[Rfam]
RNA sequence: AGCCUCAUUCUAGAUUAAAACAGGCACUAUUUUUGUACAUGGUGUCCAGAAAUUGUUAAUGUGGCUACAUUGAGACACAGGUUAUGCUUCCAUCACGGUACUUUUAUUGCAGUGGUGACAAUGAGACCUGUGACACUU
Dot-bracket structure: .(((.(((..............(((((..............)))))............))).)))...........(((((.........((((((...............)))))).........))))).......
Small nucleolar RNA SNORA1: a 138-nucleotide sequence from Molossus molossus.
The family has 29 seed sequences and 1,282 matches in Rfam 15.1.
ACA1 is a member of the H/ACA class of snoRNA that guide the sites of modification of uridines to pseudouridines.